The record is a 71-nucleotide RNA sequence from Nesidiocoris tenuis, which matches "mir-290 microRNA precursor family" in Rfam. A reference for the family is Houbaviy et al. (2003), "Embryonic stem cell-specific MicroRNAs", Dev Cell. Rfam links the family to the GO terms miRNA-mediated post-transcriptional gene silencing and RISC complex. Lineage of the source: Eukaryota > Protostomia > Dicondylia > Euheteroptera > Nesidiocoris. The family has 31 seed sequences and 565 matches in Rfam 15.1. Clan: mir-290 clan.
Nucleotides: 071
Stems, first nucleotide, its partner, number of pairs: 004068009015057011027045003
Number, partner (000 for none) and nucleotide at each position: 001000u002000a003000g004068g005067u006066a007065c008064u009063c010062a011061a012060a013000u014000u015057c016056u017055g018054g019053a020052a021051g022050c023049a024048u025047u026000g027045u028044g029043u030000g031000u032000a033000u034000a035000u036000u037000g038000u039000a040000u041000a042000c043029a044028c045027a046000c047025a048024a049023u050022g051021c052020u053019u054018c055017c056016a057015g058000a059000a060012u061011u062010u063009g064008a065007g066006u067005a068004c069000u070000u071000c